[Rfam]
RNA sequence: GGUCGAUGAUGAUAGACGUUAAGGCUUGUUUCUCGAAAAACAUUCGCAGUGGCCGCCUAAAGCCUUUCGCCGGGCUUGAGAGCUAAUGCAGCUCCCUUUCCUUCCUUGGAUGUCUGAGAUC
Numbered sequence: 001g002g003u004c005g006a007u008g009a010u011g012a013u014a015g016a017c018g019u020u021a022a023g024g025c026u027u028g029u030u031u032c033u034c035g036a037a038a039a040a041c042a043u044u045c046g047c048a049g050u051g052g053c054c055g056c057c058u059a060a061a062g063c064c065u066u067u068c069g070c071c072g073g074g075c076u077u078g079a080g081a082g083c084u085a086a087u088g089c090a091g092c093u094c095c096c097u098u099u100c101c102u103u104c105c106u107u108g109g110a111u112g113u114c115u116g117a118g119a120u121c
Stems, first nucleotide, its partner, number of pairs: 001121004062083002065080003